[Rfam]
RNA sequence: GGAUCGAUGAUGACUAUAAAAAAAAGGAUCUCAUCGGAAUCUGAACAAAAUGAGUGACCAAAUCAUUUCUGUGCCACUUCUGUGAGCUGAGGUCC
Numbered sequence: 001g002g003a004u005c006g007a008u009g010a011u012g013a014c015u016a017u018a019a020a021a022a023a024a025a026g027g028a029u030c031u032c033a034u035c036g037g038a039a040u041c042u043g044a045a046c047a048a049a050a051u052g053a054g055u056g057a058c059c060a061a062a063u064c065a066u067u068u069c070u071g072u073g074c075c076a077c078u079u080c081u082g083u084g085a086g087c088u089g090a091g092g093u094c095c
Base pairs, nucleotide, nucleotide: 001095002094003093004092005091028055029054031053032052034048036046
RNA: Small nucleolar RNA SNORD116
Organism: Chlorocebus sabaeus